[Rfam]
RNA sequence: GGAUAUGAUGAAAAGGCAUAAUUGUUUUGUGACACCCAGUCUGAUCUGCUUUUGGCAGAAUGAGUGAUUUGCCAUGUUCUCUGAUCU
Dot-bracket structure: (((...........((((...................................................))))...........)))

Description
This 87-nucleotide RNA from Brassica rapa belongs to the Rfam family "Small nucleolar RNA snoR4a". A reference for the family is Brown et al. (2001), "Multiple snoRNA gene clusters from Arabidopsis", RNA. Gene Ontology terms of the family: nucleolus and RNA processing. The family has 2 seed sequences and 63 matches in Rfam 15.1.